Shown here is a 110-nucleotide RNA from Pan troglodytes, a member of the family "mir-1289 microRNA precursor family". Rfam 15.1 lists 31 matches to the family in 27 species. The family's consensus secondary structure was predicted with RNAalifold. Gene Ontology terms of the family: RISC complex and miRNA-mediated post-transcriptional gene silencing.

RNA sequence: CCACGGUCCUAGUUAAAAAGGCACAUUCCUAGACCCUGCCUCAGAACUACUGAACAGAGUCACUGGGUGUGGAGUCCAGGAAUCUGCAUUUUUACCCCUGUCGCCCCCGC
Numbered sequence: 001c002c003a004c005g006g007u008c009c010u011a012g013u014u015a016a017a018a019a020g021g022c023a024c025a026u027u028c029c030u031a032g033a034c035c036c037u038g039c040c041u042c043a044g045a046a047c048u049a050c051u052g053a054a055c056a057g058a059g060u061c062a063c064u065g066g067g068u069g070u071g072g073a074g075u076c077c078a079g080g081a082a083u084c085u086g087c088a089u090u091u092u093u094a095c096c097c098c099u100g101u102c103g104c105c106c107c108c109g110c
Base pairs, nucleotide, nucleotide: 017091018090019089021087022086023085025083027081028080029079030078032076033075034074036072037071038070039069041067042066
Dot-bracket structure: ................(((.(((.(.((((.(((.((((.((.......................)).)))).))).)))).).))).)))...................